RNA sequence: GAAAGGUUGUCGCUACGGCAAUUCUGCUCAGUACGAGAGGAACCGCAGAUUCGGACCGUUGGUACACGCGCUUGGUCGAGCGGCCAGUGGCGCGAAGCUACCAUCCGCGGGAUUACGGCUGAACGCCUCUAAGUCGGAAUCCCAACCGGUACGCGGCAAUACCGCCGGCGCCCCAGCCUCGGGAGGCCUGCACUAGCGCCAGCUAGGGACUGGGCCGCAUCCCGCGCACUCUGGGUCCGGAGAGUACGAGCUCCGGGUCCUCGAACGCGGAUAUCAUUCCGCCGUGGAAAGGGGCGCAAAAUCACUUGCAGACGACUUGGGUAUGGAUCGAGGUGUCGUGCACAGUAGAGCAGCAUCUUCGCUGCGAUCUGCUGAAACUAAUCCUUCGAUCCGAGGGAUUUGU
Numbered sequence: 001g002a003a004a005g006g007u008u009g010u011c012g013c014u015a016c017g018g019c020a021a022u023u024c025u026g027c028u029c030a031g032u033a034c035g036a037g038a039g040g041a042a043c044c045g046c047a048g049a050u051u052c053g054g055a056c057c058g059u060u061g062g063u064a065c066a067c068g069c070g071c072u073u074g075g076u077c078g079a080g081c082g083g084c085c086a087g088u089g090g091c092g093c094g095a096a097g098c099u100a101c102c103a104u105c106c107g108c109g110g111g112a113u114u115a116c117g118g119c120u121g122a123a124c125g126c127c128u129c130u131a132a133g134u135c136g137g138a139a140u141c142c143c144a145a146c147c148g149g150u151a152c153g154c155g156g157c158a159a160u161a162c163c164g165c166c167g168g169c170g171c172c173c174c175a176g177c178c179u180c181g182g183g184a185g186g187c188c189u190g191c192a193c194u195a196g197c198g199c200c201a202g203c204u205a206g207g208g209a210c211u212g213g214g215c216c217g218c219a220u221c222c223c224g225c226g227c228a229c230u231c232u233g234g235g236u237c238c239g240g241a242g243a244g245u246a247c248g249a250g251c252u253c254c255g256g257g258u259c260c261u262c263g264a265a266c267g268c269g270g271a272u273a274u275c276a277u278u279c280c281g282c283c284g285u286g287g288a289a290a291g292g293g294g295c296g297c298a299a300a301a302u303c304a305c306u307u308g309c310a311g312a313c314g315a316c317u318u319g320g321g322u323a324u325g326g327a328u329c330g331a332g333g334u335g336u337c338g339u340g341c342a343c344a345g346u347a348g349a350g351c352a353g354c355a356u357c358u359u360c361g362c363u364g365c366g367a368u369c370u371g372c373u374g375a376a377a378c379u380a381a382u383c384c385u386u387c388g389a390u391c392c393g394a395g396g397g398a399u400u401u402g403u
Base pairs, nucleotide, nucleotide: 006160007159008158009157010156011155012154013153016148017147018146021051023049024048025047026046027045052107053106054105055104060100061099062098067094068093069092070091071090072087073086074085075084076083077082109143110142111141116136117135118134119133120132170295171294172293173292174291299401300400301399302398303397305319308316325392326391327390328389329388330387331385332384333383335378336377343371344370345369347368350365351364352363353362354361
Eukaryotic large subunit ribosomal RNA: a 403-nucleotide part of an RNA from Strongylocentrotus purpuratus. NCBI's taxonomy places the organism under Eukaryota, Echinozoa, Echinacea, Camarodonta, Strongylocentrotus. Its Rfam clan is "LSU clan". The base pairs follow the family's consensus structure, which is taken from published work.